A member of the RNA family "mir-29 microRNA precursor family" from Nasonia vitripennis, 69 nucleotides long. Rfam's curators write: This family represents the microRNA (miRNA) precursors mir-29. For this family Rfam cites "microRNAs: tiny regulators with great potential" (Ambros, Cell, 2001). Rfam's curators put it in the seed alignment.

RNA sequence: GAGGUACUGACUUCGGUGCGUGCUGGGGUUACCGAUCAAGCGCCUAGCACCAUUUGAAAUCAGUACUAC
Numbered sequence: 001g002a003g004g005u006a007c008u009g010a011c012u013u014c015g016g017u018g019c020g021u022g023c024u025g026g027g028g029u030u031a032c033c034g035a036u037c038a039a040g041c042g043c044c045u046a047g048c049a050c051c052a053u054u055u056g057a058a059a060u061c062a063g064u065a066c067u068a069c
Stems, first nucleotide, its partner, number of pairs: 001069001003067002007063004012058004020050003024046004